This 140-nucleotide RNA from Ceratitis capitata belongs to the Rfam family "Small nucleolar RNA psi28S-1192". It scores 56 bits against the family's covariance model. The family has 15 seed sequences and 81 matches in Rfam 15.1. Rfam classes the family as an H/ACA-box small nucleolar RNA. From the family's description: psi28S-1192 is a member of the H/ACA class of snoRNA. This family is responsible for guiding the modification of uridine 1192 to pseudouridine in Drosophila 28S rRNA. Lineage of the source: Eukaryota > Altocrustacea > Insecta > Cyclorrhapha > Ceratitis.
[Rfam]
RNA sequence: AUACAGUCCCCUCUAAUGCAAAGUAAUGUUUUAACCAAAUCACUUUGCCUCGCUUGUGGACAAGAUAAAUAUACCCCUAUUAUCCUAGCGUCUAAAUUAAAUUAUGUGUUUUGGUGCUCGAGAAACGUAGAGGUACAGAG
Numbered sequence: 001a002u003a004c005a006g007u008c009c010c011c012u013c014u015a016a017u018g019c020a021a022a023g024u025a026a027u028g029u030u031u032u033a034a035c036c037a038a039a040u041c042a043c044u045u046u047g048c049c050u051c052g053c054u055u056g057u058g059g060a061c062a063a064g065a066u067a068a069a070u071a072u073a074c075c076c077c078u079a080u081u082a083u084c085c086u087a088g089c090g091u092c093u094a095a096a097u098u099a100a101a102u103u104a105u106g107u108g109u110u111u112u113g114g115u116g117c118u119c120g121a122g123a124a125a126c127g128u129a130g131a132g133g134u135a136c137a138g139a140g
Stems, first nucleotide, its partner, number of pairs: 006061004019047006026040001027038001073134003077130004085122002088119001090117001